This 130-nucleotide sequence from Capra hircus belongs to the Rfam family "Small nucleolar RNA SNORA11". The match comes from Rfam's covariance-model search (134 bits). On this family, see Gu et al., Nucleic Acids Res 2005: "A novel experimental approach for systematic identification of box H/ACA snoRNAs from eukaryotes". Rfam links the family to the GO terms nucleolus and RNA processing. Rfam describes the family as follows. U107 (SNORA11) is a member of the H/ACA class of snoRNAs that guide the sites of modification of uridines to pseudouridines. This snoRNA was identified by RT-PCR from blood cells and its expression confirmed by Northern blot analysis. There is no predicted target for this guide snRNA. By type it is an H/ACA-box small nucleolar RNA.
RNA sequence: GGGGUGUGCUCAGAGCAGGGGGCCUGAAGAAAUGGCUCGUCUGUUUAUAACACACCCGACAGGAAUCUGGGUUCACUGUGACAAGGGGCAUAAAACGUGUGGCCUUCCUAUGAACAGAAACCCAACACGU
Numbered sequence: 001g002g003g004g005u006g007u008g009c010u011c012a013g014a015g016c017a018g019g020g021g022g023c024c025u026g027a028a029g030a031a032a033u034g035g036c037u038c039g040u041c042u043g044u045u046u047a048u049a050a051c052a053c054a055c056c057c058g059a060c061a062g063g064a065a066u067c068u069g070g071g072u073u074c075a076c077u078g079u080g081a082c083a084a085g086g087g088g089c090a091u092a093a094a095a096c097g098u099g100u101g102g103c104c105u106u107c108c109u110a111u112g113a114a115c116a117g118a119a120a121c122c123c124a125a126c127a128c129g130u
Stems, first nucleotide, its partner, number of pairs: 002057007013046007021038001022036003070123002073120001077116003082112002085105003089101004